[Rfam]
RNA sequence: CGAAAACAUUUCUAGGGUUCCGCGACAGUUUACUGUUGGCCUGGUCCGAGAGAAAUGCGCAGCCGCUAUGGGUGUGACACGGAAGGACAAAAGCCUGGGAGAA
Numbered sequence: 001c002g003a004a005a006a007c008a009u010u011u012c013u014a015g016g017g018u019u020c021c022g023c024g025a026c027a028g029u030u031u032a033c034u035g036u037u038g039g040c041c042u043g044g045u046c047c048g049a050g051a052g053a054a055a056u057g058c059g060c061a062g063c064c065g066c067u068a069u070g071g072g073u074g075u076g077a078c079a080c081g082g083a084a085g086g087a088c089a090a091a092a093g094c095c096u097g098g099g100a101g102a103a
Stems, first nucleotide, its partner, number of pairs: 007057006015047002020044002022041001023038006058076004063071003078098001080101001084096003

Guanidine-I riboswitch aptamer: a 103-nucleotide sequence from Brochothrix thermosphacta. Pairs were carried over by alignment from the consensus structure. Taxonomically the source falls in Brochothrix (Bacteria, Bacillota, Bacilli, Listeriaceae).